Shown here is a 135-nucleotide RNA from Pedionomus torquatus, a member of the family "Small nucleolar RNA SNORA84". The organism belongs to Pedionomus, within Eukaryota. A search with the family's covariance model found it, with a score of 105 bits. A reference for the family is Marker et al. (2002), "Experimental RNomics: identification of 140 candidates for small non-messenger RNAs in the plant Arabidopsis thaliana", Curr Biol.
RNA sequence: GCCCUGUGGUUACUGGACGCUGGUUUGUACAUUCAGUGGUUCAGGUGGUAGAAAUGGGCCAAAAGUGAUACUGUGAUUUAUGCGUGGAGUCUGUGAUUUCUGAGCAGUUUCCAUAGCCUGGUCACAGUUACAGAC
Number, nucleotide and partner (000 for none) at each position: 001g059002c058003c057004c056005u000006g000007u050008g049009g000010u047011u000012a000013c044014u043015g042016g041017a040018c000019g037020c036021u035022g034023g033024u000025u000026u000027g000028u000029a000030c000031a000032u000033u023034c022035a021036g020037u019038g000039g000040u017041u016042c015043a014044g013045g000046u000047g010048g000049u008050a007051g000052a000053a000054a000055u000056g004057g003058g002059c001060c000061a000062a000063a000064a000065g000066u000067g000068a000069u000070a000071c127072u000073g125074u124075g123076a122077u121078u120079u000080a000081u000082g117083c116084g114085u113086g112087g111088a000089g109090u000091c107092u106093g105094u104095g000096a000097u000098u000099u000100c000101u000102g000103a000104g094105c093106a092107g091108u000109u089110u000111c087112c086113a085114u084115a000116g083117c082118c000119u000120g078121g077122u076123c075124a074125c073126a000127g071128u000129u000130a000131c000132a000133g000134a000135c000